[Rfam]
RNA: Small nucleolar RNA SNORA22
Organism: Salvator merianae
RNA sequence: UGGCACAGCAAACACCCAAGUGGGCUCGGUAGUUCCCUUGGCCUAACUCUGUGCUAGAGUAAUCUGUGCUUUACCCUCUGCAUUAGAAGGAGUAUCUUUCCUUUUACAUGUAUUCAAAAGGACAGAACACUU
Dot-bracket structure: ..((((((.(...(.(((((.(.(((....))).).)))))..)...))))))).((((((.....))))))....(.(((((.(((((((.......)))))))..)))....)).)..............